[Rfam]
Nucleotides: 091
Stems, first nucleotide, its partner, number of pairs: 001091001003089006038063001040061002045056004
Number, partner (000 for none) and nucleotide at each position: 001091c002000u003089u004088u005087u006086c007085a008084c009000g010000g011000u012000g013000a014000u015000g016000a017000a018000a019000a020000c021000u022000u023000u024000g025000g026000u027000u028000u029000g030000g031000a032000c033000u034000a035000g036000a037000g038063u039000a040061u041060c042000c043000g044000a045056a046055a047054a048053u049000c050000a051000a052000a053048a054047u055046u056045u057000c058000u059000u060041g061040a062000c063038g064000a065000u066000u067000a068000c069000c070000u071000c072000u073000u074000g075000g076000c077000u078000g079000u080000c081000u082000g083000a084008g085007u086006g087005a088004a089003a090000c091001g
This 91-nucleotide RNA sequence from Chloropicon primus belongs to the Rfam family "Small nucleolar RNA Z157/R69/R10".
Gene Ontology terms of the family: nucleolus and RNA processing.
The literature on the family includes a 2003 paper in Nucleic Acids Res by Chen et al., "The high diversity of snoRNAs in plants: identification and comparative study of 120 snoRNA genes from Oryza sativa".
Its Rfam clan is "SNORD52 clan".